A member of the RNA family "Histone 3' UTR stem-loop" from Clupea harengus, 46 nucleotides long.
By type it is a cis-regulatory element.
For this family Rfam cites "Molecular mechanisms for the regulation of histone mRNA stem-loop-binding protein by phosphorylation" (Zhang et al., Proc Natl Acad Sci U S A, 2014).
Pairs were carried over by alignment from the consensus structure, which is taken from published work.
Taxonomically the source falls in Clupea (Eukaryota, Deuterostomia, Actinopterygii, Teleostei).
Rfam 15.1 lists 44,596 matches to the family in 976 species.
A search with the family's covariance model found it, with a score of 39 bits.
RNA sequence: UCAAAGGCUCUUUUAAGAGCCACUCACCUCUUCUUUGAAAAGUCAU
Numbered sequence: 001u002c003a004a005a006g007g008c009u010c011u012u013u014u015a016a017g018a019g020c021c022a023c024u025c026a027c028c029u030c031u032u033c034u035u036u037g038a039a040a041a042g043u044c045a046u
Stems, first nucleotide, its partner, number of pairs: 006021006